RNA: RAGATH-28 RNA
RNA sequence: GCGGGGUUGAUUCUUCCCCCGCCCGUGGCCAUGGCGGGCAUAGAGGGGGUGAAAACCGGGCGGAAACGGUCGGAUGGCGAAGC
Numbered sequence: 001g002c003g004g005g006g007u008u009g010a011u012u013c014u015u016c017c018c019c020c021g022c023c024c025g026u027g028g029c030c031a032u033g034g035c036g037g038g039c040a041u042a043g044a045g046g047g048g049g050u051g052a053a054a055a056c057c058g059g060g061c062g063g064a065a066a067c068g069g070u071c072g073g074a075u076g077g078c079g080a081a082g083c
Stems, first nucleotide, its partner, number of pairs: 001022006056073004061068002
Dot-bracket structure: ((((((..........)))))).................................((((.((....)).))))..........